azaaromatic riboswitch aptamer (yjdF RNA): a 109-nucleotide sequence from Clostridium estertheticum. It scores 83 bits against the family's covariance model. NCBI's taxonomy places the organism under Bacteria, Bacillati, Bacillota, Eubacteriales, Clostridium.
RNA sequence: AUAAUUAGAAAUAAAAACACAGUUUUGGUUGGUAGUCCAAACCUAUCUAUAUGAACGUAGAUAGCAGUAACCUUCCCUCCUGGGGUCGUCCAUUCUCUAUAUUUAGUUU
Numbered sequence: 001a002u003a004a005u006u007a008g009a010a011a012u013a014a015a016a017a018c019a020c021a022g023u024u025u026u027g028g029u030u031g032g033u034a035g036u037c038c039a040a041a042c043c044u045a046u047c048u049a050u051a052u053g054a055a056c057g058u059a060g061a062u063a064g065c066a067g068u069a070a071c072c073u074u075c076c077c078u079c080c081u082g083g084g085g086u087c088g089u090c091c092a093u094u095c096u097c098u099a100u101a102u103u104u105a106g107u108u109u
Stems, first nucleotide, its partner, number of pairs: 006099004011094001022042002025040004043064008075085003